[Rfam]
RNA sequence: AUGUACUUAAGUACAUUCCGGUUCGUCCGCUCCGUCCAUCACAGGCUGACGGCCUCUCGCUACAGAUCGUAAACA
Number, nucleotide and partner (000 for none) at each position: 001a000002u015003g014004u013005a012006c011007u000008u000009a000010a000011g006012u005013a004014c003015a002016u000017u000018c000019c034020g033021g032022u000023u000024c029025g000026u000027c000028c000029g024030c000031u000032c021033c020034g019035u000036c000037c000038a000039u000040c000041a000042c000043a000044g000045g000046c000047u072048g000049a070050c069051g068052g067053c000054c000055u000056c000057u000058c000059g000060c000061u000062a000063c000064a000065g000066a000067u052068c051069g050070u049071a000072a047073a000074c000075a000

The family of this 75-nucleotide sequence from Herbaspirillum sp. meg3 is "Xanthomonas sRNA sX9". A search with the family's covariance model found it, with a score of 46 bits. Rfam 15.1 lists 309 matches to the family in 52 species.